Rfam assigns this 161-nucleotide sequence from Protea cynaroides to the family "small nucleolar RNA snoR143". Taxonomically the source falls in Protea (Eukaryota, Streptophyta, Magnoliopsida, Proteaceae). The family's RNA type in Rfam is H/ACA-box small nucleolar RNA. A search with the family's covariance model found it, with a score of 95 bits. Rfam 15.1 lists 660 matches to the family in 212 species.
RNA sequence: UUGCACUUGUAUUGUAGGCCUCUCUGAUUCCAGUAGUGUGGCCUUGAACUAGGGUGCAUAGAGUAAAAGCUGUUUAUCAGCAGUGGCCAGACAACCAUAGAGAUGAAUCCACAGAUGAGUGGUUCAAAAUGCCACUUGUCUACUGAUUUCAUUUCACAUCU
Numbered sequence: 001u002u003g004c005a006c007u008u009g010u011a012u013u014g015u016a017g018g019c020c021u022c023u024c025u026g027a028u029u030c031c032a033g034u035a036g037u038g039u040g041g042c043c044u045u046g047a048a049c050u051a052g053g054g055u056g057c058a059u060a061g062a063g064u065a066a067a068a069g070c071u072g073u074u075u076a077u078c079a080g081c082a083g084u085g086g087c088c089a090g091a092c093a094a095c096c097a098u099a100g101a102g103a104u105g106a107a108u109c110c111a112c113a114g115a116u117g118a119g120u121g122g123u124u125c126a127a128a129a130u131g132c133c134a135c136u137u138g139u140c141u142a143c144u145g146a147u148u149u150c151a152u153u154u155c156a157c158a159u160c161u
Stems, first nucleotide, its partner, number of pairs: 002058005009049002012047003016044005022038001024036003100155008118137002120134003